[Rfam]
RNA sequence: CGCUUCCGGCCAUGUUCCGCUGACGUCCGUCAGCGACAUGCCCAGGCAGCCACGAUCUUCAAGGCUGCGACGCGGUUCCGACCGCGUUGAUCACUCCAGUUCGCACCGGCAUCCAAGCGCGAACGGCCAUCGGUUCUCGAUGGCGAUGC
Numbered sequence: 001c002g003c004u005u006c007c008g009g010c011c012a013u014g015u016u017c018c019g020c021u022g023a024c025g026u027c028c029g030u031c032a033g034c035g036a037c038a039u040g041c042c043c044a045g046g047c048a049g050c051c052a053c054g055a056u057c058u059u060c061a062a063g064g065c066u067g068c069g070a071c072g073c074g075g076u077u078c079c080g081a082c083c084g085c086g087u088u089g090a091u092c093a094c095u096c097c098a099g100u101u102c103g104c105a106c107c108g109g110c111a112u113c114c115a116a117g118c119g120c121g122a123a124c125g126g127c128c129a130u131c132g133g134u135u136c137u138c139g140a141u142g143g144c145g146a147u148g149c
Stems, first nucleotide, its partner, number of pairs: 011040004016035001019034006046068006054092004069088007119149003126144008
RNA: radC RNA